[Rfam]
RNA: Bradyrhizobiaceae sRNA BjrC174
RNA sequence: GUCACGGGAUCGUUAGAAGAAUCUUAUUGCCGCCAGAUUUUUGCCCAGUGGCAGCCCUUGUGGACUGCGACAAGAAGAUACUGCGUCGGGCCCGGUUCCUCCGGUUUCGGAUUCCUCAGCCCCCAGCCCCCCGCGAUCGUUGGGGCCGGGCCUGCGCAGUAAGUUAAUCCCCACUGGGCCAACGCAAGUUGGUCCAUUU
Numbered sequence: 001g002u003c004a005c006g007g008g009a010u011c012g013u014u015a016g017a018a019g020a021a022u023c024u025u026a027u028u029g030c031c032g033c034c035a036g037a038u039u040u041u042u043g044c045c046c047a048g049u050g051g052c053a054g055c056c057c058u059u060g061u062g063g064a065c066u067g068c069g070a071c072a073a074g075a076a077g078a079u080a081c082u083g084c085g086u087c088g089g090g091c092c093c094g095g096u097u098c099c100u101c102c103g104g105u106u107u108c109g110g111a112u113u114c115c116u117c118a119g120c121c122c123c124c125a126g127c128c129c130c131c132c133g134c135g136a137u138c139g140u141u142g143g144g145g146c147c148g149g150g151c152c153u154g155c156g157c158a159g160u161a162a163g164u165u166a167a168u169c170c171c172c173a174c175u176g177g178g179c180c181a182a183c184g185c186a187a188g189u190u191g192g193u194c195c196a197u198u199u
Stems, first nucleotide, its partner, number of pairs: 035165002038050001040048002080160007089152011102139005108133003119127002176195008